[Rfam]
RNA sequence: GACAGCGGGCAACGGAAUCCCAAAAGCAGCUGUUGUCUCGAGAGCAUUCCAGCUGCGCUUGGAUUUCGUUCCCUGCUCUCCUG
Number, nucleotide and partner (000 for none) at each position: 001g000002a000003c000004a077005g076006c075007g074008g073009g000010c000011a000012a069013c068014g067015g066016a065017a064018u063019c062020c061021c000022a060023a059024a000025a000026g056027c055028a054029g053030c052031u051032g050033u000034u000035g000036u000037c000038u000039c000040g000041a000042g000043a000044g000045c000046a000047u000048u000049c000050c032051a031052g030053c029054u028055g027056c026057g000058c000059u023060u022061g020062g019063a018064u017065u016066u015067c014068g013069u012070u000071c000072c000073c008074u007075g006076c005077u004078c000079u000080c000081c000082u000083g000

Rfam assigns this 83-nucleotide sequence from Cricetulus griseus to the family "mir-191 microRNA precursor family". Rfam 15.1 lists 621 matches to the family in 455 species. The source organism's lineage runs through Eukaryota, Chordata, Euteleostomi, Myomorpha and Cricetulus. Its family is annotated with RISC complex and miRNA-mediated post-transcriptional gene silencing in the Gene Ontology. Pairs were carried over by alignment from the consensus structure, which was predicted with RNAalifold.